[Rfam]
This 187-nucleotide RNA sequence from Vicugna pacos belongs to the Rfam family "Small Cajal body specific RNA 16". Rfam's curators write: scaRNAs are a specific class of small nuclear RNAs which localise to the Cajal bodies and guide the modification of RNA polymerase II transcribed spliceosomal RNAs U1, U2, U4, U5 and U12. ACA47 belongs to the H/ACA box class of guide RNAs as it has the predicted hairpin-hinge-hairpin-tail structure, the conserved H/ACA-box motifs and is found associated with GAR1. ACA47 is predicted to guide the pseudouridylation of residue U5 of the U1 spliceosomal snRNA. Rfam links the family to the GO terms RNA processing and nucleolus. The organism belongs to Vicugna, within Eukaryota.
Nucleotides: 187
Base pairs, nucleotide, nucleotide: 003081004080005079006078008076009075010074015070016069017068018067019065020064021063022062024061025060027054028053029052030051032049033048034047093114094113095112097109098108099107100106122182123181124180125179126178127177128176129175130174132172133171138166139165140164142162143161144160145159148157149156150155
Number, partner (000 for none) and nucleotide at each position: 001000g002000u003081g004080g005079u006078c007000u008076g009075g010074g011000a012000a013000g014000a015070g016069g017068c018067u019065c020064c021063u022062g023000u024061g025060u026000u027054g028053u029052u030051g031000a032049a033048c034047c035000c036000u037000c038000c039000c040000a041000g042000u043000u044000g045000u046000g047034g048033g049032u050000g051030c052029a053028a054027c055000c056000u057000u058000g059000u060025a061024c062022c063021a064020g065019g066000c067018a068017g069016c070015c071000c072000g073000a074010c075009c076008c077000u078006g079005a080004c081003c082000u083000a084000a085000a086000g087000u088000a089000a090000a091000u092000u093114c094113c095112c096000a097109g098108g099107a100106g101000a102000c103000c104000g105000u106100u107099u108098c109097c110000c111000u112095g113094g114093g115000u116000u117000u118000u119000g120000a121000a122182u123181u124180u125179g126178c127177a128176g129175u130174a131000a132172c133171a134000g135000g136000u137000g138166u139165g140164a141000a142162c143161a144160u145159u146000c147000u148157a149156g150155c151000a152000g153000c154000c155150g156149u157148u158000u159145g160144a161143u162142g163000a164140u165139c166138a167000u168000g169000u170000a171133u172132g173000a174130u175129a176128c177127u178126g179125c180124a181123a182122a183000c184000a185000g186000a187000a